[Rfam]
RNA sequence: UGGAGUGUGUAAGGUCCAACCUCACAUGUCCUGUGUGUGUGUGGAGGCGGUGUGAGGUCAGACCUGUCCCACUCCA
Numbered sequence: 001u002g003g004a005g006u007g008u009g010u011a012a013g014g015u016c017c018a019a020c021c022u023c024a025c026a027u028g029u030c031c032u033g034u035g036u037g038u039g040u041g042u043g044g045a046g047g048c049g050g051u052g053u054g055a056g057g058u059c060a061g062a063c064c065u066g067u068c069c070c071a072c073u074c075c076a
Stems, first nucleotide, its partner, number of pairs: 001076002004073004009068001012065005019058003023054005030047003
RNA: mir-2188 microRNA precursor family